The record is a 219-nucleotide RNA from Synechococcus sp. CBW1002, which matches "permuted transfer-messenger RNA" in Rfam.
Nucleotides: 219
Stems, first nucleotide, its partner, number of pairs: 001136003005132001016122003020118003026042005043103007
Number, partner (000 for none) and nucleotide at each position: 001136g002135g003134u004000g005132a006000u007000c008000c009000a010000c011000a012000c013000c014000a015000g016122u017121g018120c019000u020118u021117c022116g023000g024000a025000c026042a027041g028040c029039g030038g031000u032000u033000c034000g035000a036000u037000u038030c039029c040028g041027c042026u043103c044102a045101g046100c047099u048098c049097c050000a051000u052000u053000c054000g055000c056000c057000u058000u059000u060000u061000u062000c063000g064000u065000c066000c067000u068000g069000g070000c071000u072000g073000c074000u075000u076000g077000c078000c079000g080000g081000g082000a083000u084000c085000c086000g087000g088000g089000c090000a091000c092000g093000u094000c095000c096000c097049g098048g099047g100046g101045c102044u103043g104000c105000a106000a107000u108000g109000g110000u111000u112000u113000c114000g115000a116022c117021g118020g119000g120018g121017u122016a123000u124000g125000a126000g127000g128000a129000g130000g131000g132005u133000g134003a135002c136001u137000g138000a139000a140000g141000c142000c143000u144000g145000c146000u147000c148000g149000g150000u151000a152000a153000g154000a155000g156000c157000a158000a159000a160000c161000c162000c163000g164000u165000a166000a167000c168000a169000g170000c171000g172000a173000a174000c175000a176000a177000c178000a179000u180000c181000g182000u183000u184000c185000g186000u187000u188000u189000c190000u191000c192000c193000c194000g195000u196000c197000a198000a199000g200000c201000u202000g203000c204000c205000c206000c207000u208000g209000u210000g211000g212000c213000u214000g215000c216000c217000u218000g219000a
By type it is a non-coding RNA gene. Rfam's curators put it in the seed alignment.